[Rfam]
RNA sequence: CGCAUCUUGUCGGAGUGCCCCUAUCUUUUAGAAAAAGGGCUGAGACUGCUAUAUGCAGGAUCCGUGGAACCUGAUUGGGCUAAUACCUACGUAGGAAACAAGCAAAAAAUAUCG
Number, nucleotide and partner (000 for none) at each position: 001c000002g000003c000004a000005u000006c102007u101008u100009g099010u098011c064012g063013g062014a061015g000016u058017g040018c039019c038020c037021c000022u000023a000024u000025c000026u000027u000028u000029u000030a000031g000032a000033a000034a000035a000036a000037g020038g019039g018040c017041u000042g000043a000044g000045a000046c000047u057048g056049c055050u000051a000052u000053a000054u000055g049056c048057a047058g016059g000060a000061u014062c013063c012064g011065u000066g000067g000068a000069a000070c095071c094072u093073g092074a000075u000076u089077g088078g087079g086080c000081u000082a000083a000084u000085a000086c079087c078088u077089a076090c000091g000092u073093a072094g071095g070096a000097a000098a010099c009100a008101a007102g006103c000104a000105a000106a000107a000108a000109a000110u000111a000112u000113c000114g000

Shown here is a 114-nucleotide RNA from Psychromonas sp. Urea-02u-13, a member of the family "TPP riboswitch aptamer (THI element)".